[Rfam]
RNA: ZMP/ZTP riboswitch aptamer (pfl RNA motif)
Organism: Anaerosacchariphilus polymeriproducens
RNA sequence: CAUGGAUUAUAUGACUGACGGAAGUGGAUUUAACCACAUGAAGUAUAAUCAUUAAAAAAAGCCGACCGUCUGGGCAGAAGAA
Numbered sequence: 001c002a003u004g005g006a007u008u009a010u011a012u013g014a015c016u017g018a019c020g021g022a023a024g025u026g027g028a029u030u031u032a033a034c035c036a037c038a039u040g041a042a043g044u045a046u047a048a049u050c051a052u053u054a055a056a057a058a059a060a061g062c063c064g065a066c067c068g069u070c071u072g073g074g075c076a077g078a079a080g081a082a
Base pairs, nucleotide, nucleotide: 005050006049007048008047009046010045011044012043015040017070018069019068020067021066024037025036026035027034061075062074063073